About this RNA: This 86-nucleotide sequence from Helianthus annuus belongs to the Rfam family "Small nucleolar RNA R11/Z151".
RNA sequence: GAGUUAAUGAUGAGAAACAUAAAUAUCUUAGCGGAUUUCAGUAAGAUUUUUAAUCAAUGAUCUGAUUGUUACACACACUGAAGCUC
Numbered sequence: 001g002a003g004u005u006a007a008u009g010a011u012g013a014g015a016a017a018c019a020u021a022a023a024u025a026u027c028u029u030a031g032c033g034g035a036u037u038u039c040a041g042u043a044a045g046a047u048u049u050u051u052a053a054u055c056a057a058u059g060a061u062c063u064g065a066u067u068g069u070u071a072c073a074c075a076c077a078c079u080g081a082a083g084c085u086c
Base pairs, nucleotide, nucleotide: 001086002085003084004083005082
Dot-bracket structure: (((((............................................................................)))))
The family's consensus secondary structure was predicted with PFOLD. Rfam links the family to the GO terms RNA processing and nucleolus. The family has 5 seed sequences and 802 matches in Rfam 15.1.